[Rfam]
RNA sequence: AACAGGCUAUACAGACCACACACACGUGUCGACACAGCAUUCAGGGUGCCGCUUGCGGUUGGAUGCUGGGAUGCGUGGAGGUUUAAC
Dot-bracket structure: ......................((((((((....(((((((((....((((....))))))))))))).))))))))..........
Rfam assigns this 87-nucleotide RNA from Marinobacterium nitratireducens to the family "t44 RNA". The match comes from Rfam's covariance-model search (77 bits). Lineage of the source: Bacteria > Pseudomonadota > Gammaproteobacteria > Oceanospirillaceae > Marinobacterium. Rfam's curators write: This family consists of a number of bacterial RNA genes of between 135 and 170 bases in length. The t44 gene has been identified in several species of enteric bacteria but homologs have also been identified in Pseudomonas and Coxiella species. The t44 gene is found between the map and rpsB genes in all species in the full alignment apart from Shigella flexneri.